[Rfam]
RNA sequence: ACAGCCUGAAAACCGCGAGGCUCACACCGUACGGGGUGCAUCAUGCAUCUACAUCCGUGAGCGGGUUAAGGUCUGAGCAUUCUAAUCCCCCUCGCUCGGCUCUAGCAGGGCCUGGUCUUAACAGACUAAGCGGCGUACCAGAAAUUCGUCCUACCAUCUCACCCGAAGACGUCCUAGCCUUGUGCUGGUGAUAGAGGGGACGGGGUUGCUGGGCUUGAGAUGCGCCGUGGGGACCGGGUGGGUGUGUCCUGUAUGCCGGCUUCGUGCUUUGGUGUUAUUGUCACCCUGUCCUUUAGUGCACUUCGCGGUUCGCAGUUCGUAGGUCUCUCUGUGACCGUGCGGAACUCGAUUCAGACUACUCUUGGGCUGU
Dot-bracket structure: ((((..(((..(((((((.(((((.........((((((.....)))))).......)))))..........[[[[[..........((((......(((((.....)))))((((((....)))))).(((((((.............((((........................................................))))........)))))))))))......................................................................)))))))(((((.......................))))).......]]]]].......)))..))))
The family of this 370-nucleotide RNA sequence from Hermanssonia centrifuga is "Nuclear RNase P". Rfam 15.1 lists 3,848 matches to the family in 1,862 species. NCBI's taxonomy places the organism under Eukaryota, Fungi, Dikarya, Polyporales, Hermanssonia. The family's RNA type in Rfam is ribozyme. Rfam's curators write: Ribonuclease P (RNase P) is a ubiquitous endoribonuclease, found in archaea, bacteria and eukarya as well as chloroplasts and mitochondria. Its best characterised activity is the generation of mature 5'-ends of tRNAs by cleaving the 5'-leader elements of precursor-tRNAs.